[Rfam]
RNA sequence: CUCUGAAAGGGCAAACCCAGGGGAACCUGGGGACGCAAAGCCACGGGUCCAGUUCCGGAUAGCCGGGUUGCCGAAA
Dot-bracket structure: ..(.......((...((((((....))))))..[))..((((.((((((........))).])))))))...)...
RNA: c-di-GMP-I-GGC riboswitch aptamer
Organism: Geobacter sp. SVR